[Rfam]
RNA sequence: CCAAAGGCUCUUUUAAGAGCCACACACACACACGUACAAGUAAAAG
Numbered sequence: 001c002c003a004a005a006g007g008c009u010c011u012u013u014u015a016a017g018a019g020c021c022a023c024a025c026a027c028a029c030a031c032a033c034g035u036a037c038a039a040g041u042a043a044a045a046g
Stems, first nucleotide, its partner, number of pairs: 006021006

Source information
The record is a 46-nucleotide RNA from Denticeps clupeoides, which matches "Histone 3' UTR stem-loop" in Rfam. Rfam classes the family as a cis-regulatory element. Rfam links the family to the GO term mRNA 3'-end processing by stem-loop binding and cleavage. Rfam describes the family as follows. The mRNAs of metazoan histone genes lack a poly-A tail. 3' end processing occurs at a site between a highly conserved stem-loop (modelled by this family) and a purine rich region around 20 nts downstream (the histone downstream element, or HDE). The stem-loop is bound by a 31 kDa stem-loop binding protein (SLBP - also termed the histone hairpin binding protein, or HBP). Together with U7 snRNA binding of the HDE, SLBP binding nucleate s the formation of the processing complex. The histone 3' UTR stem-loop is also involved in nucleocytoplasmic transport of the mRNA, and in stability regulation and translation efficiency in the cytoplasm.